RNA sequence: UAGAUGUGCUCAGAGGAAGAGGCCUGAAGAAGUGGUUCCUCUGUUUAUCACACGUCCAACAGGAAUCUGGGUUCAUUGUCAUAAGAGGCACAAAAUUGUGUCCUUCCUAUGAACAAAUAACCUAAAUGU
Dot-bracket structure: ..((((((....(((.(.(.((((.........))).).).).)))....)))))).............((((...(((..((.(.(.((((....)))).).).....)).)))...)))).......
Numbered sequence: 001u002a003g004a005u006g007u008g009c010u011c012a013g014a015g016g017a018a019g020a021g022g023c024c025u026g027a028a029g030a031a032g033u034g035g036u037u038c039c040u041c042u043g044u045u046u047a048u049c050a051c052a053c054g055u056c057c058a059a060c061a062g063g064a065a066u067c068u069g070g071g072u073u074c075a076u077u078g079u080c081a082u083a084a085g086a087g088g089c090a091c092a093a094a095a096u097u098g099u100g101u102c103c104u105u106c107c108u109a110u111g112a113a114c115a116a117a118u119a120a121c122c123u124a125a126a127u128g129u
Stems, first nucleotide, its partner, number of pairs: 003056006013046003017042001019040001021038001022036003070122004077115003082111002085104001087102001089100004

Small nucleolar RNA SNORA11: a 129-nucleotide RNA sequence from Catagonus wagneri. Rfam links the family to the GO terms nucleolus and RNA processing. U107 (SNORA11) is a member of the H/ACA class of snoRNAs that guide the sites of modification of uridines to pseudouridines. This snoRNA was identified by RT-PCR from blood cells and its expression confirmed by Northern blot analysis.